Overview: A member of the RNA family "SAM riboswitch aptamer (S box leader)" from Acidaminococcus intestini, 105 nucleotides long. The family's consensus secondary structure is taken from published work. The organism belongs to Acidaminococcus, within Bacteria.
RNA sequence: UGCUCAUCAAGAGUGGCGGAGGGAAUGGCCCUAUGAACCCACAGCAACCAUGGCCUCAUGGCCAACGGUGCUAAAUCCUGCAAUGUAAUGAUUGUAAGAUGAGAG
Numbered sequence: 001u002g003c004u005c006a007u008c009a010a011g012a013g014u015g016g017c018g019g020a021g022g023g024a025a026u027g028g029c030c031c032u033a034u035g036a037a038c039c040c041a042c043a044g045c046a047a048c049c050a051u052g053g054c055c056u057c058a059u060g061g062c063c064a065a066c067g068g069u070g071c072u073a074a075a076u077c078c079u080g081c082a083a084u085g086u087a088a089u090g091a092u093u094g095u096a097a098g099a100u101g102a103g104a105g
Stems, first nucleotide, its partner, number of pairs: 001105001003103006013042004021031003027078002043072004048068002052062001076097001081094004
It is one of the family's seed sequences.